Notes
The record is a 65-nucleotide RNA sequence from Cricetulus griseus, which matches "mir-290 microRNA precursor family" in Rfam. A search with the family's covariance model found it, with a score of 52 bits. For this family Rfam cites "Embryonic stem cell-specific MicroRNAs" (Houbaviy et al., Dev Cell, 2003). Rfam links the family to the GO terms RISC complex and miRNA-mediated post-transcriptional gene silencing.
RNA sequence: GUGGUACUCAAACUAUGGGGUACUUUUUGUUCUGGAAUAUAGUGCCGCCAGGUUUUGAGCACUAC
Numbered sequence: 001g002u003g004g005u006a007c008u009c010a011a012a013c014u015a016u017g018g019g020g021u022a023c024u025u026u027u028u029g030u031u032c033u034g035g036a037a038u039a040u041a042g043u044g045c046c047g048c049c050a051g052g053u054u055u056u057g058a059g060c061a062c063u064a065c
Stems, first nucleotide, its partner, number of pairs: 004062002007059006016050003019046006025039001027037001